This 108-nucleotide sequence from Rhododendron williamsianum belongs to the Rfam family "Small nucleolar RNA snoR100".
A reference for the family is Marker et al. (2002), "Experimental RNomics: identification of 140 candidates for small non-messenger RNAs in the plant Arabidopsis thaliana", Curr Biol.
Its family is annotated with RNA processing and nucleolus in the Gene Ontology.
It scores 71 bits against the family's covariance model.
Taxonomically the source falls in Rhododendron (Eukaryota, Euphyllophyta, Gunneridae, Rhodoreae).

[Rfam]
RNA sequence: CAAUGAAAGAGGUAUGAUAAUGUGCACAGAAAUUGAAUUGGGUCUUUUGGCCUGCCCUCUCUGAUGCCAUUUGACUUUGAUUUGGAAGCAUAGUUUCGCAGCAAAACA
Numbered sequence: 001c002a003a004u005g006a007a008a009g010a011g012g013u014a015u016g017a018u019a020a021u022g023u024g025c026a027c028a029g030a031a032a033u034u035g036a037a038u039u040g041g042g043u044c045u046u047u048u049g050g051c052c053u054g055c056c057c058u059c060u061c062u063g064a065u066g067c068c069a070u071u072u073g074a075c076u077u078u079g080a081u082u083u084g085g086a087a088g089c090a091u092a093g094u095u096u097c098g099c100a101g102c103a104a105a106a107c108a
Stems, first nucleotide, its partner, number of pairs: 012025004040091001042089002050081001052079001054075001056073001